[Rfam]
RNA sequence: CUGUGAAUAUUCUCCUUGGUCUGAUUUUAUAAUAGUCAGGACAGGCUAAACAUUCACUAUAUUAAGACCAUGCUUGUGUCCCCAAACCUAGUUUUUUCCCUAGGUCUGGUUUUAUAAAUGGUGAUAAAC
Numbered sequence: 001c002u003g004u005g006a007a008u009a010u011u012c013u014c015c016u017u018g019g020u021c022u023g024a025u026u027u028u029a030u031a032a033u034a035g036u037c038a039g040g041a042c043a044g045g046c047u048a049a050a051c052a053u054u055c056a057c058u059a060u061a062u063u064a065a066g067a068c069c070a071u072g073c074u075u076g077u078g079u080c081c082c083c084a085a086a087c088c089u090a091g092u093u094u095u096u097u098c099c100c101u102a103g104g105u106c107u108g109g110u111u112u113u114a115u116a117a118a119u120g121g122u123g124a125u126a127a128a129c
Stems, first nucleotide, its partner, number of pairs: 003057003016044003020040007067122004082109003086105006

Rfam assigns this 129-nucleotide RNA from Prolemur simus to the family "Small nucleolar RNA SNORA72".
Rfam links the family to the GO terms RNA processing and nucleolus.
Pairs were carried over by alignment from the consensus structure, which was predicted with PFOLD.
Rfam describes the family as follows. U72 is a member of the H/ACA class of snoRNAs. The snoRNA gene is located in intron 4 of the ribosomal L30 protein gene in human, mouse and chicken.
A reference for the family is Ganot et al. (1997), "The family of box ACA small nucleolar RNAs is defined by an evolutionarily conserved secondary structure and ubiquitous sequence elements essential for RNA accumulation", Genes Dev.
It scores 127 bits against the family's covariance model.